[Rfam]
RNA sequence: UAGACUUUUUUCGAUAUAAAACACUCAUGUCGAUAAAAAUUUUUGAGUCUUUU
Number, nucleotide and partner (000 for none) at each position: 001u000002a000003g000004a000005c000006u000007u000008u000009u000010u000011u033012c032013g031014a030015u029016a028017u027018a000019a000020a000021a000022c000023a000024c000025u000026c000027a017028u016029g015030u014031c013032g012033a011034u000035a000036a000037a000038a000039a000040u000041u000042u000043u000044u000045g000046a000047g000048u000049c000050u000051u000052u000053u000